[Rfam]
The family of this 234-nucleotide RNA from Halalkalibacter wakoensis is "Group II catalytic intron D1-D4-6". A search with the family's covariance model found it, with a score of 149 bits. The source organism's lineage runs through Bacteria, Bacillati, Bacillaceae, Halalkalibacter and Halalkalibacter wakoensis.

RNA sequence: GGAUUCCCGUCGAGUAAGAGUUAGCCACUCACUCGUAGCGAGUCUUGGAGGUAUUUGGUAACAAGUAUCUUUAAGCGUAGACAGUUAAAUUGUGGGCCGAAAGCCAAUUGAGGUUGAAGGGAAAAUAGCUCCGAAAUACCAAAAUGAGAAGGCUGAUGUGGUUGCCUGUACAGAAAGCAACAUUCUUUUCUUCGAAAUGGCGAGAAGAAAGAACUUCUCCGGAGUCGAGGACCU
Numbered sequence: 001g002g003a004u005u006c007c008c009g010u011c012g013a014g015u016a017a018g019a020g021u022u023a024g025c026c027a028c029u030c031a032c033u034c035g036u037a038g039c040g041a042g043u044c045u046u047g048g049a050g051g052u053a054u055u056u057g058g059u060a061a062c063a064a065g066u067a068u069c070u071u072u073a074a075g076c077g078u079a080g081a082c083a084g085u086u087a088a089a090u091u092g093u094g095g096g097c098c099g100a101a102a103g104c105c106a107a108u109u110g111a112g113g114u115u116g117a118a119g120g121g122a123a124a125a126u127a128g129c130u131c132c133g134a135a136a137u138a139c140c141a142a143a144a145u146g147a148g149a150a151g152g153c154u155g156a157u158g159u160g161g162u163u164g165c166c167u168g169u170a171c172a173g174a175a176a177g178c179a180a181c182a183u184u185c186u187u188u189u190c191u192u193c194g195a196a197a198u199g200g201c202g203a204g205a206a207g208a209a210a211g212a213a214c215u216u217c218u219c220c221g222g223a224g225u226c227g228a229g230g231a232c233c234u
Stems, first nucleotide, its partner, number of pairs: 011035004018030004022203001024201002038085002042082004046077002048072004052067006128225006146219006152178003157172004183213005189208005